[Rfam]
RNA sequence: UUGGUUGUGAUGAUUAUAAAAAUUCCUCGUACUGAAUGCUAUUGGCAUGACAGACAAUCUACACCCAUAGAAUAUGAGCAUCC
Numbered sequence: 001u002u003g004g005u006u007g008u009g010a011u012g013a014u015u016a017u018a019a020a021a022a023u024u025c026c027u028c029g030u031a032c033u034g035a036a037u038g039c040u041a042u043u044g045g046c047a048u049g050a051c052a053g054a055c056a057a058u059c060u061a062c063a064c065c066c067a068u069a070g071a072a073u074a075u076g077a078g079c080a081u082c083c
Base pairs, nucleotide, nucleotide: 003083004082006080007079
RNA: Small nucleolar RNA snoR8a